Bacterial small signal recognition particle RNA: a 98-nucleotide RNA sequence from Roseateles aquatilis. Lineage of the source: Bacteria > Betaproteobacteria > Burkholderiales > Sphaerotilaceae > Roseateles. The family's consensus secondary structure is taken from published work. Clan: SRP clan.
[Rfam]
RNA sequence: GACGGGCCUCCUCGCAUGGAAGCACGGCCAACUGGGUCAGGUGGGGAACCAAGCAGCCCUAACUGUUGUGACCAGUGCCGAGGGUAAGGCUCGUCAAC
Dot-bracket structure: ...((((((((((((.(((..(.((((......((((....(((....)))....))))...))))..)..))))...))))))...)))))......